[Rfam]
RNA sequence: ACACAGGGAAGGAGGUGAUCCGAGAAGUGAUUUCUGAUCGGACAUGUGAGGUGGCUCGCCGCUGAGGCGACCGUUCAUCCGGACGCGCAGCGAAUACCACCGAGCUGCCGGGACCCCCAGGGGUCGGAUCUCGUCCUUCCGACCAGCGCACCGCGCGACCUGGGGGUUCUUCCCUG
Numbered sequence: 001a002c003a004c005a006g007g008g009a010a011g012g013a014g015g016u017g018a019u020c021c022g023a024g025a026a027g028u029g030a031u032u033u034c035u036g037a038u039c040g041g042a043c044a045u046g047u048g049a050g051g052u053g054g055c056u057c058g059c060c061g062c063u064g065a066g067g068c069g070a071c072c073g074u075u076c077a078u079c080c081g082g083a084c085g086c087g088c089a090g091c092g093a094a095u096a097c098c099a100c101c102g103a104g105c106u107g108c109c110g111g112g113a114c115c116c117c118c119a120g121g122g123g124u125c126g127g128a129u130c131u132c133g134u135c136c137u138u139c140c141g142a143c144c145a146g147c148g149c150a151c152c153g154c155g156c157g158a159c160c161u162g163g164g165g166g167u168u169c170u171u172c173c174c175u176g
Stems, first nucleotide, its partner, number of pairs: 014059001017056001019054001060092005067086003071082003110170012123143006
The record is a 176-nucleotide RNA sequence from Brachybacterium faecium, which matches "Actinobacteria sRNA Ms_IGR-5" in Rfam. It is annotated as a small RNA. It scores 76 bits against the family's covariance model.